[Rfam]
This 86-nucleotide RNA from Spinacia oleracea belongs to the Rfam family "Small nucleolar RNA Z221/R21b".
RNA sequence: GAGCUAUGAUGAGAAUUGAGAUUGUCAUGCACCACUCUGAUUACCCGUGCUGAUAACUUUCUAUUACCCAUUUUAUCUCUGAGCUC
Numbered sequence: 001g002a003g004c005u006a007u008g009a010u011g012a013g014a015a016u017u018g019a020g021a022u023u024g025u026c027a028u029g030c031a032c033c034a035c036u037c038u039g040a041u042u043a044c045c046c047g048u049g050c051u052g053a054u055a056a057c058u059u060u061c062u063a064u065u066a067c068c069c070a071u072u073u074u075a076u077c078u079c080u081g082a083g084c085u086c
Stems, first nucleotide, its partner, number of pairs: 001086004

Its family is annotated with RNA processing and nucleolus in the Gene Ontology.
Lineage of the source: Eukaryota > Viridiplantae > Tracheophyta > Caryophyllales > Spinacia.